[Rfam]
RNA sequence: AGCAAUGAAAAUUAGCAAAAAAAAUAACCCUUCUUUUCUCGACUUUUUAAAUCUAUCAUAAACAAUUAAAAUUGUCAAUAACUAAAAUGGAGCCCACGACCGGGCUCGAACCGGCGACCUCCGCCU
Numbered sequence: 001a002g003c004a005a006u007g008a009a010a011a012u013u014a015g016c017a018a019a020a021a022a023a024a025u026a027a028c029c030c031u032u033c034u035u036u037u038c039u040c041g042a043c044u045u046u047u048u049a050a051a052u053c054u055a056u057c058a059u060a061a062a063c064a065a066u067u068a069a070a071a072u073u074g075u076c077a078a079u080a081a082c083u084a085a086a087a088u089g090g091a092g093c094c095c096a097c098g099a100c101c102g103g104g105c106u107c108g109a110a111c112c113g114g115c116g117a118c119c120u121c122c123g124c125c126u
Stems, first nucleotide, its partner, number of pairs: 007038003014031002052060001054058001088123005097116002100114004
The family of this 126-nucleotide sequence from Caldicellulosiruptor owensensis is "Bacterial antisense RNA HPnc0260". Pairs were carried over by alignment from the consensus structure, which was predicted with CMfinder. The organism belongs to Caldicellulosiruptor owensensis, within Bacteria.